[Rfam]
RNA sequence: UUAGCCGUGGUGGGAGAGGCCGUGCCAAGCGCCGGCCGCCGACGGAGCAACACCUCCCCGAAGACACUCUCAGGCACCAGCACCGCCACGGUAAG
Numbered sequence: 001u002u003a004g005c006c007g008u009g010g011u012g013g014g015a016g017a018g019g020c021c022g023u024g025c026c027a028a029g030c031g032c033c034g035g036c037c038g039c040c041g042a043c044g045g046a047g048c049a050a051c052a053c054c055u056c057c058c059c060g061a062a063g064a065c066a067c068u069c070u071c072a073g074g075c076a077c078c079a080g081c082a083c084c085g086c087c088a089c090g091g092u093a094a095g
Stems, first nucleotide, its partner, number of pairs: 006090008019036004038075003041071002045069003
Rfam assigns this 95-nucleotide RNA sequence from Corynebacterium resistens to the family "Glycine riboswitch aptamer".
From the family's description: This family represents the bacterial glycine riboswitch.
Its family is annotated with glycine biosynthetic process in the Gene Ontology.